[Rfam]
RNA sequence: GGACCUGGCGUACCCCGCGCCCCUCUCAAGAACUCGUGGAGAAAACCCUUCCCCACCAAACCUGGCCCGGCGUCCCUCGUCCGGGUGAGAAUCUUGAUCUCCGGCCGAAACAUCCCCAACUCGGCCUUACGCUCGGGCUCGACAACACCCACACAUGCGACGACCCCCGCCGGGACUGCCAUCCCGAGCGAGGGUCUGACCACCGAGGAAGUAAGGCCCUUCCCC
Numbered sequence: 001g002g003a004c005c006u007g008g009c010g011u012a013c014c015c016c017g018c019g020c021c022c023c024u025c026u027c028a029a030g031a032a033c034u035c036g037u038g039g040a041g042a043a044a045a046c047c048c049u050u051c052c053c054c055a056c057c058a059a060a061c062c063u064g065g066c067c068c069g070g071c072g073u074c075c076c077u078c079g080u081c082c083g084g085g086u087g088a089g090a091a092u093c094u095u096g097a098u099c100u101c102c103g104g105c106c107g108a109a110a111c112a113u114c115c116c117c118a119a120c121u122c123g124g125c126c127u128u129a130c131g132c133u134c135g136g137g138c139u140c141g142a143c144a145a146c147a148c149c150c151a152c153a154c155a156u157g158c159g160a161c162g163a164c165c166c167c168c169g170c171c172g173g174g175a176c177u178g179c180c181a182u183c184c185c186g187a188g189c190g191a192g193g194g195u196c197u198g199a200c201c202a203c204c205g206a207g208g209a210a211g212u213a214a215g216g217c218c219c220u221u222c223c224c225c
Stems, first nucleotide, its partner, number of pairs: 007204002010201001016085001018083002098109001124138003162196005168190003172185004207223005
The record is a 225-nucleotide RNA from Streptomyces sp. RKND-216, which matches "Streptomyces sRNA 4677" in Rfam. It is annotated as a small RNA. For this family Rfam cites "Complex intra-operonic dynamics mediated by a small RNA in Streptomyces coelicolor" (Hindra et al., PLoS One, 2014). About the family: Located in the intergenic region between anti-sigma factor SCO4677 gene and a putative regulatory protein gene SCO4676. scr4677 expression requires the SCO4677 activity and scr4677 sRNA itself seem to affect the levels of the SCO4676-associated transcripts.